[Rfam]
RNA sequence: GUAGGUGCCCAUAUCGGGGCCUGCAGGCGGCAUGGAAUGCGAUAGCUCCGGCCGCACGAACUUGUACCCAUGUUGCUCACAGGAGGAUGUGGCUAUGAGAA
Numbered sequence: 001g002u003a004g005g006u007g008c009c010c011a012u013a014u015c016g017g018g019g020c021c022u023g024c025a026g027g028c029g030g031c032a033u034g035g036a037a038u039g040c041g042a043u044a045g046c047u048c049c050g051g052c053c054g055c056a057c058g059a060a061c062u063u064g065u066a067c068c069c070a071u072g073u074u075g076c077u078c079a080c081a082g083g084a085g086g087a088u089g090u091g092g093c094u095a096u097g098a099g100a101a
Base pairs, nucleotide, nucleotide: 001024002023003022004021005020006019008018009017061099062098063097064096065095066094068092069091070090071089072088073087074086076085077084078083

Shown here is a 101-nucleotide RNA from Nitratireductor mangrovi, a member of the family "Repression of heat shock gene expression (ROSE) element". Its family is annotated with response to temperature stimulus and regulation of translation in the Gene Ontology. On this family, see Nocker et al., Nucleic Acids Res 2001: "A mRNA-based thermosensor controls expression of rhizobial heat shock genes". Rfam's curators write: This family represents a 5' UTR cis-regulatory element found in heat shock mRNAs and is known as the ROSE (repression of heat shock gene expression) element. The ROSE element is a negative regulator of heat shock gene expression. The secondary structure is thought to be regulated by temperature. This regulation blocks access to the ribosome binding site under normal conditions. Pairs were carried over by alignment from the consensus structure, which is taken from published work. A search with the family's covariance model found it, with a score of 54 bits.